[Rfam]
RNA sequence: GGCUGGUCAGAAGGUAGUGAGUUAUCUCGAUUGUUCAUAGUCAGUUACAGAUUGAACUCCUCAUUCUCUUCUUUCCCCUCUUCUCACUACUGCACUUGACCAGUCUUAA
Numbered sequence: 001g002g003c004u005g006g007u008c009a010g011a012a013g014g015u016a017g018u019g020a021g022u023u024a025u026c027u028c029g030a031u032u033g034u035u036c037a038u039a040g041u042c043a044g045u046u047a048c049a050g051a052u053u054g055a056a057c058u059c060c061u062c063a064u065u066c067u068c069u070u071c072u073u074u075c076c077c078c079u080c081u082u083c084u085c086a087c088u089a090c091u092g093c094a095c096u097u098g099a100c101c102a103g104u105c106u107u108a109a
Stems, first nucleotide, its partner, number of pairs: 001105008010097002014093002016088006040070001043067002
RNA: Y RNA
Organism: Otolemur garnettii